[Rfam]
Rfam assigns this 116-nucleotide RNA from Trifolium medium to the family "Small nucleolar RNA Z278". Rfam's curators write: snoZ278 is a C/D box small nucleolar RNA. Its methylation guide targets have not been reported.
RNA sequence: GCCUAUGAUUAUAUAAUCCAAAUUGUUUGAGGUGUUUUGGAGCCAAGCUCCUGUUUACAGGAAGAACCUACUUGGUGAAGGAACAUUCAUAUGACAUUAAUGGAUUUUAAUGAGGC
Numbered sequence: 001g002c003c004u005a006u007g008a009u010u011a012u013a014u015a016a017u018c019c020a021a022a023u024u025g026u027u028u029g030a031g032g033u034g035u036u037u038u039g040g041a042g043c044c045a046a047g048c049u050c051c052u053g054u055u056u057a058c059a060g061g062a063a064g065a066a067c068c069u070a071c072u073u074g075g076u077g078a079a080g081g082a083a084c085a086u087u088c089a090u091a092u093g094a095c096a097u098u099a100a101u102g103g104a105u106u107u108u109a110a111u112g113a114g115g116c
Stems, first nucleotide, its partner, number of pairs: 001116003049062005
The base pairs follow the family's consensus structure, which was predicted with PFOLD. A search with the family's covariance model found it, with a score of 58 bits. NCBI's taxonomy places the organism under Eukaryota, Streptophytina, Spermatophyta, Trifolieae, Trifolium. Gene Ontology terms of the family: RNA processing and nucleolus. The literature on the family includes a 2003 paper in Nucleic Acids Res by Chen et al., "The high diversity of snoRNAs in plants: identification and comparative study of 120 snoRNA genes from Oryza sativa".